[Rfam]
RNA: Small nucleolar RNA MBII-202
Organism: Takifugu rubripes
RNA sequence: UGAUGACAAAUCUCCGGAAUCUCUGUAUUUACUUGAUGAAUACUUGAACCCAUUAAUCUGAUACUGACUGCAUAUUUCCUGUCAUC
Dot-bracket structure: .(((((((.......................................................................)))))))